[Rfam]
RNA sequence: AAUAGAAGAAUGAUAAAUCAGAUUUUUUCUCUUGGUUUUUAGCAUUUUUAGUUGGAUUUGAAUUUUUUCAGGAGAAAAAAAGUUAAAAAUCAAGAGAAAAAAAUCUGAUUUGUUAUUCUCCUAUU
Dot-bracket structure: (((((.(((((((((((((((((((((.(((((((((((.((..((((............................))))..)).))))))))))).))))).)))))))))))))))).)))))
RNA: MIR7504 microRNA precursor family